[Rfam]
RNA sequence: UCGCUUGAUAGAGGCGCGGUACUCAUCAGUACCCUCCGGCAAGGUCGUGCAGCCGCCGAAGGAGAAAGGGAUCACCGCCGAAGUAUGGGAAAUCUGCCCGGGUUUUUCAUGCUGGGUCGUCAGAGAACAUCUGCCGGACUGUCACAAAAAUCUUUGUGAAGCGCUAUCAUUGGC
Number, nucleotide and partner (000 for none) at each position: 001u000002c000003g000004c000005u000006u169007g168008a167009u166010a165011g164012a000013g000014g000015c000016g078017c077018g076019g075020u074021a000022c000023u071024c070025a000026u000027c000028a000029g000030u000031a000032c000033c062034c061035u060036c000037c058038g057039g056040c000041a000042a000043g000044g000045u000046c000047g000048u000049g000050c000051a000052g000053c000054c000055g000056c039057c038058g037059a000060a035061g034062g033063a000064g000065a000066a000067a000068g000069g000070g024071a023072u000073c000074a020075c019076c018077g017078c016079c000080g000081a000082a113083g112084u111085a110086u109087g108088g107089g106090a105091a104092a103093u102094c000095u000096g000097c000098c000099c000100g000101g000102g093103u092104u091105u090106u089107u088108c087109a086110u085111g084112c083113u082114g140115g139116g000117u137118c136119g135120u000121c133122a132123g131124a130125g000126a000127a000128c000129a000130u124131c123132u122133g121134c000135c119136g118137g117138a000139c115140u114141g000142u159143c158144a157145c156146a155147a154148a153149a000150a000151u000152c000153u148154u147155u146156g145157u144158g143159a142160a000161g000162c000163g000164c011165u010166a009167u008168c007169a006170u000171u000172g000173g000174c000